[Rfam]
RNA sequence: UUCGCAAAUGAUGACAAAUAGACAGGGACAUCAGCACUCGAAGGAGAGUGAUGACUUAGUCUAAAAUGGGAAUCUCUCUGAUGCGUU
Numbered sequence: 001u002u003c004g005c006a007a008a009u010g011a012u013g014a015c016a017a018a019u020a021g022a023c024a025g026g027g028a029c030a031u032c033a034g035c036a037c038u039c040g041a042a043g044g045a046g047a048g049u050g051a052u053g054a055c056u057u058a059g060u061c062u063a064a065a066a067u068g069g070g071a072a073u074c075u076c077u078c079u080g081a082u083g084c085g086u087u
Stems, first nucleotide, its partner, number of pairs: 003085004